[Rfam]
RNA sequence: UCGGUCCCGGUUCACGGACGGCAGUCCGCCCUUCCGACCCGGAACC
Numbered sequence: 001u002c003g004g005u006c007c008c009g010g011u012u013c014a015c016g017g018a019c020g021g022c023a024g025u026c027c028g029c030c031c032u033u034c035c036g037a038c039c040c041g042g043a044a045c046c
Stems, first nucleotide, its partner, number of pairs: 003046003007042004015036004020030003
Dot-bracket structure: ..(((.((((....((((.(((.....)))..))))..)))).)))

The record is a 46-nucleotide RNA sequence from Streptacidiphilus jiangxiensis, which matches "L31-Actinobacteria ribosomal protein leader" in Rfam. Its Rfam clan is "Ribosomal Protein L31 Leader clan". The source organism's lineage runs through Bacteria, Bacillati, Actinomycetes, Kitasatosporales and Streptacidiphilus. It is annotated as a cis-regulatory leader. A reference for the family is Eckert and Weinberg (2020), "Discovery of 20 novel ribosomal leader candidates in bacteria and archaea", BMC Microbiol.